RNA sequence: CUACCAUGAUGGUAUAUUUUUCUUCAACAGCAAUUCUCCUAAUGAAUGAUGAAGCUUUGGGUCUCAGUGA
Dot-bracket structure: .(((...((.(..........).)).........................................))).

The family of this 70-nucleotide RNA from Oryctolagus cuniculus is "Small nucleolar RNA SNORD56". The family's RNA type in Rfam is C/D-box small nucleolar RNA. The source organism's lineage runs through Eukaryota, Bilateria, Dipnotetrapodomorpha, Glires and Oryctolagus.